[Rfam]
A member of the RNA family "Small nucleolar RNA SNORD111" from Sarcophilus harrisii, 82 nucleotides long.
RNA sequence: CAGCCUGAAAUGAUGAUUUACAUUCAUGUCUCUUCUCUGAGAUUUUUUCUGGAGAAAAUAUUGUGUAUAACUGAUCAGGCUU
Numbered sequence: 001c002a003g004c005c006u007g008a009a010a011u012g013a014u015g016a017u018u019u020a021c022a023u024u025c026a027u028g029u030c031u032c033u034u035c036u037c038u039g040a041g042a043u044u045u046u047u048u049c050u051g052g053a054g055a056a057a058a059u060a061u062u063g064u065g066u067a068u069a070a071c072u073g074a075u076c077a078g079g080c081u082u
Stems, first nucleotide, its partner, number of pairs: 002081004

Rfam 15.1 lists 894 matches to the family in 541 species. The family's RNA type in Rfam is C/D-box small nucleolar RNA. The literature on the family includes a 2002 paper in Mol Cell Biol by Galardi et al., "Purified box C/D snoRNPs are able to reproduce site-specific 2'-O-methylation of target RNA in vitro".